[Rfam]
RNA sequence: ACAAAGCACUUCUGUAAGUUGCUCUGGAUAAGGGCAUCUGCUAACUGCCAUAAA
Numbered sequence: 001a002c003a004a005a006g007c008a009c010u011u012c013u014g015u016a017a018g019u020u021g022c023u024c025u026g027g028a029u030a031a032g033g034g035c036a037u038c039u040g041c042u043a044a045c046u047g048c049c050a051u052a053a054a
Base pairs, nucleotide, nucleotide: 013043014041015040016039020036021035022034023033024032025031